[Rfam]
RNA sequence: AGUCACAGAAGAGGAGCACUGCCUAGGUAGAUGCAUUGUGGAGCCACAACUCCAAUACGAUGCGUUGAAGGGAGAGCAGUGCCGAGAUUGCGCUAAUUUGUUGGAUUAGAGCAGUCGGUUGACUUGAGUUGAUUCUCAUCAAUUGUCAUCAGUAGCAUCUGAUGAAGCGCUUCUGAGGUA
Numbered sequence: 001a002g003u004c005a006c007a008g009a010a011g012a013g014g015a016g017c018a019c020u021g022c023c024u025a026g027g028u029a030g031a032u033g034c035a036u037u038g039u040g041g042a043g044c045c046a047c048a049a050c051u052c053c054a055a056u057a058c059g060a061u062g063c064g065u066u067g068a069a070g071g072g073a074g075a076g077c078a079g080u081g082c083c084g085a086g087a088u089u090g091c092g093c094u095a096a097u098u099u100g101u102u103g104g105a106u107u108a109g110a111g112c113a114g115u116c117g118g119u120u121g122a123c124u125u126g127a128g129u130u131g132a133u134u135c136u137c138a139u140c141a142a143u144u145g146u147c148a149u150c151a152g153u154a155g156c157a158u159c160u161g162a163u164g165a166a167g168c169g170c171u172u173c174u175g176a177g178g179u180a
Stems, first nucleotide, its partner, number of pairs: 006175006016082006023074002030066008086116006093109005117144006146165007
Rfam assigns this 180-nucleotide RNA from Vibrio renipiscarius to the family "Lysine riboswitch aptamer".
Riboswitches are metabolite binding domains within certain messenger RNAs that serve as precision sensors for their corresponding targets. Allosteric rearrangement of mRNA structure is mediated by ligand binding, and this results in modulation of gene expression. This family includes riboswitches that sense lysine in a number of genes involved in lysine metabolism, including lysC.
The source organism's lineage runs through Bacteria, Pseudomonadati, Gammaproteobacteria, Vibrionales and Vibrio.